About this RNA
Rfam assigns this 250-nucleotide part of an RNA from Nanoarchaeum equitans to the family "Archaeal large subunit ribosomal RNA". Pairs were carried over by alignment from the consensus structure, which is taken from published work.

RNA sequence: CGGCGGCUGAGGGGAAGGACGGCCUAGUACGAAAGGAACGGCCGUCCGGCGCCUCUAGUCGACGGGGUGUCCGUAUGGGCAGCCCCGGCAGCCACGCGCUAGGGGGUAAGGGCUGAAUGCAUCUAAGCCCGAACCCCUCCCCGAAAAGAGCCGCCGAUCCCCCUCGGGUAGAAGACCCGGUUGAUGGGGGGGCGGUGGAAGCCCCGAGGGUUUCCGAGGGGCGAGCCGGCCCCUCCCAAUCGGGGGGUGG
Numbered sequence: 001c002g003g004c005g006g007c008u009g010a011g012g013g014g015a016a017g018g019a020c021g022g023c024c025u026a027g028u029a030c031g032a033a034a035g036g037a038a039c040g041g042c043c044g045u046c047c048g049g050c051g052c053c054u055c056u057a058g059u060c061g062a063c064g065g066g067g068u069g070u071c072c073g074u075a076u077g078g079g080c081a082g083c084c085c086c087g088g089c090a091g092c093c094a095c096g097c098g099c100u101a102g103g104g105g106g107u108a109a110g111g112g113c114u115g116a117a118u119g120c121a122u123c124u125a126a127g128c129c130c131g132a133a134c135c136c137c138u139c140c141c142c143g144a145a146a147a148g149a150g151c152c153g154c155c156g157a158u159c160c161c162c163c164u165c166g167g168g169u170a171g172a173a174g175a176c177c178c179g180g181u182u183g184a185u186g187g188g189g190g191g192g193c194g195g196u197g198g199a200a201g202c203c204c205c206g207a208g209g210g211u212u213u214c215c216g217a218g219g220g221g222c223g224a225g226c227c228g229g230c231c232c233c234u235c236c237c238a239a240u241c242g243g244g245g246g247g248u249g250g
Base pairs, nucleotide, nucleotide: 001156002155003154004153005152006151007150008149011142012141013140014139017047018046019045020044021043022042023041024040048100049099050098051097052096056094058092063087064086065085066084067083068081069080070079071078072077103137104136105135110130111129112128113127114126160245161244162243163242164180165179166178167177168176185238186237187236188234189233190232191231192230193228194227195226201222202221203220204219205218208215